[Rfam]
RNA sequence: UUUGCAAGUUUGAGGCCACAGCAGAAGCACUCACAGUAUGGCCCUGUCAGGUUCCAGUGAACCUGCAAAUUCUGCU
Numbered sequence: 001u002u003u004g005c006a007a008g009u010u011u012g013a014g015g016c017c018a019c020a021g022c023a024g025a026a027g028c029a030c031u032c033a034c035a036g037u038a039u040g041g042c043c044c045u046g047u048c049a050g051g052u053u054c055c056a057g058u059g060a061a062c063c064u065g066c067a068a069a070u071u072c073u074g075c076u
Stems, first nucleotide, its partner, number of pairs: 012044001014043004020076007027039001029037001048065007
A member of the RNA family "Mammalian CPEB3 ribozyme" from Alligator mississippiensis, 76 nucleotides long. Gene Ontology term of the family: RNA nuclease activity. The literature on the family includes a 2006 paper in Science by Salehi-Ashtiani et al., "A genomewide search for ribozymes reveals an HDV-like sequence in the human CPEB3 gene". It scores 54 bits against the family's covariance model. Taxonomically the source falls in Alligator (Eukaryota, Deuterostomia, Sarcopterygii, Alligatorinae).